[Rfam]
RNA: Bacterial RNase P class A
Organism: Labilithrix luteola
RNA sequence: CGAUGCCGAUCAGGCGAUCGCCGGUGGUUUCGCCCUCCGCAAGGAGGGAGUGACCGCGGGAGGAAAGUCCGAGCUCCACAGAGUGCGAUGCCGGGUAACGCCCGGUCGCGGAAACGCGAAGGAAAGUGCAACAGAGAAAGACCGCCCUUCUGAUACCUUUCGAGUUCGCGCGCUCGCGCGCGUCCUUCGAGUGAGGUCCGGAGGGUAAGGGUGAAACGGCGGGGUAAGAGCCCACCGCGUCUUCGGUAACGAAGGCGGCACGGCAGACCCCAUCGGGAGCAAGGCCACGUAGGCGGGCGAGCGAUGGCAACAUCGCAAAGGGCGACUCGCCCGAGCUCGCGGGUAGGCUGCUCGAGGCGUCCGGUAACGGCCGCCCUAGAGGAAUGACCGCCGCCGCGUGCGGGAUGACUCGCAAGCGGAACAGAACUCGGCUUACGAACGACGUCGACCU
Numbered sequence: 001c002g003a004u005g006c007c008g009a010u011c012a013g014g015c016g017a018u019c020g021c022c023g024g025u026g027g028u029u030u031c032g033c034c035c036u037c038c039g040c041a042a043g044g045a046g047g048g049a050g051u052g053a054c055c056g057c058g059g060g061a062g063g064a065a066a067g068u069c070c071g072a073g074c075u076c077c078a079c080a081g082a083g084u085g086c087g088a089u090g091c092c093g094g095g096u097a098a099c100g101c102c103c104g105g106u107c108g109c110g111g112a113a114a115c116g117c118g119a120a121g122g123a124a125a126g127u128g129c130a131a132c133a134g135a136g137a138a139a140g141a142c143c144g145c146c147c148u149u150c151u152g153a154u155a156c157c158u159u160u161c162g163a164g165u166u167c168g169c170g171c172g173c174u175c176g177c178g179c180g181c182g183u184c185c186u187u188c189g190a191g192u193g194a195g196g197u198c199c200g201g202a203g204g205g206u207a208a209g210g211g212u213g214a215a216a217c218g219g220c221g222g223g224g225u226a227a228g229a230g231c232c233c234a235c236c237g238c239g240u241c242u243u244c245g246g247u248a249a250c251g252a253a254g255g256c257g258g259c260a261c262g263g264c265a266g267a268c269c270c271c272a273u274c275g276g277g278a279g280c281a282a283g284g285c286c287a288c289g290u291a292g293g294c295g296g297g298c299g300a301g302c303g304a305u306g307g308c309a310a311c312a313u314c315g316c317a318a319a320g321g322g323c324g325a326c327u328c329g330c331c332c333g334a335g336c337u338c339g340c341g342g343g344u345a346g347g348c349u350g351c352u353c354g355a356g357g358c359g360u361c362c363g364g365u366a367a368c369g370g371c372c373g374c375c376c377u378a379g380a381g382g383a384a385u386g387a388c389c390g391c392c393g394c395c396g397c398g399u400g401c402g403g404g405a406u407g408a409c410u411c412g413c414a415a416g417c418g419g420a421a422c423a424g425a426a427c428u429c430g431g432c433u434u435a436c437g438a439a440c441g442a443c444g445u446c447g448a449c450c451u
Stems, first nucleotide, its partner, number of pairs: 001447005007441002010438001013392004018387002021060002024057006065434003069431005074279004081328004086275005091105005106120001107118004121270002126268002128264002142210002144206007152198003218236002221233003237259001238257008283349004293340006320332004356375004361370003